RNA sequence: ACAAGCCUUGAGCCAAUAAAGACUGAGAAGGUUGACUCAAUAAUAAA
Number, nucleotide and partner (000 for none) at each position: 001a000002c000003a000004a000005g000006c000007c000008u040009u000010g038011a037012g036013c000014c034015a033016a032017u031018a000019a000020a000021g000022a000023c000024u000025g000026a000027g000028a000029a000030g000031g017032u016033u015034g014035a000036c012037u011038c010039a000040a008041u000042a000043a000044u000045a000046a000047a000
Plastid-rpl16 group II-D1 intron: a 47-nucleotide RNA from Prunus dulcis.
The organism belongs to Prunus, within Eukaryota.
Gene Ontology term of the family: Group II intron splicing.
For this family Rfam cites "Retrograde signaling in plants: A critical review focusing on the GUN pathway and beyond" (Richter et al., Plant Commun, 2023).
The match comes from Rfam's covariance-model search (59 bits).
Pairs were carried over by alignment from the consensus structure, which was predicted with LocARNA.